[Rfam]
RNA: Nuclear RNase P
RNA sequence: GUGGUGGGAAGCUCACCAUUGAGGUCACAUGCUGAGUGUAAAUCACUACCAAUACCUUGGGGAAGGUCUGAGAUAAGAGCCAGUCACUGUCCUUGCAGGGUAUUACCUGAUGCAGGUGCAGAGGAUACCAGAGAUAUGAUUCAGGUUGUCACAGAGAGCAGGAGGAGCAGUUCAAAGGACUGUGGAUGCAGUUGCUUCCUGGAAUGCUUCUGGCUGGCUUGGUAAGCUCAAUGUGUGAGGUGAGGUCAGCAAUCUCACAACCCAAUUCAGACUACUCUCCCAUCAC
Number, nucleotide and partner (000 for none) at each position: 001g286002u285003g284004g283005u000006g000007g280008g279009a278010a000011g000012c239013u238014c237015a236016c235017c000018a000019u000020u059021g058022a057023g056024g055025u000026c000027a000028c000029a000030u000031g000032c000033u000034g000035a047036g046037u045038g044039u000040a000041a000042a000043u000044c038045a037046c036047u035048a000049c000050c000051a000052a000053u000054a000055c024056c023057u022058u021059g020060g000061g000062g000063a000064a000065g000066g000067u000068c270069u269070g268071a267072g266073a000074u000075a000076a000077g000078a215079g214080c213081c212082a000083g000084u000085c000086a000087c000088u102089g101090u100091c099092c098093u000094u000095g000096c000097a000098g092099g091100g090101u089102a088103u000104u118105a117106c116107c115108u114109g000110a000111u000112g000113c000114a108115g107116g106117u105118g104119c000120a211121g210122a209123g208124g207125a000126u000127a000128c000129c000130a000131g000132a000133g000134a000135u000136a000137u000138g198139a000140u000141u000142c000143a000144g000145g000146u000147u000148g000149u000150c000151a000152c000153a000154g000155a000156g000157a000158g000159c000160a000161g000162g000163a000164g000165g000166a000167g000168c000169a000170g000171u000172u000173c000174a000175a000176a000177g000178g000179a000180c000181u000182g000183u000184g000185g000186a000187u000188g000189c000190a000191g000192u000193u000194g000195c000196u000197u000198c138199c000200u000201g000202g000203a000204a000205u000206g000207c124208u123209u122210c121211u120212g081213g080214c079215u078216g000217g000218c000219u000220u000221g000222g000223u000224a000225a000226g000227c000228u000229c000230a000231a000232u000233g000234u000235g016236u015237g014238a013239g012240g258241u257242g256243a255244g254245g253246u252247c000248a000249g000250c000251a000252a246253u245254c244255u243256c242257a241258c240259a000260a000261c000262c000263c000264a000265a000266u072267u071268c070269a069270g068271a000272c000273u000274a000275c000276u000277c000278u009279c008280c007281c000282a000283u004284c003285a002286c001